[Rfam]
RNA: Nitrogen stress-induced RNA 1
RNA sequence: UGGUAGAUGCACCCUAAACACUCAUCCCCGGCGAAAGCUGGGGAUUUUUUAU
Numbered sequence: 001u002g003g004u005a006g007a008u009g010c011a012c013c014c015u016a017a018a019c020a021c022u023c024a025u026c027c028c029c030g031g032c033g034a035a036a037g038c039u040g041g042g043g044a045u046u047u048u049u050u051a052u
Base pairs, nucleotide, nucleotide: 002013003012004011025044026043027042028041029040030039031038032037
Dot-bracket structure: .(((......)))...........((((((((....))))))))........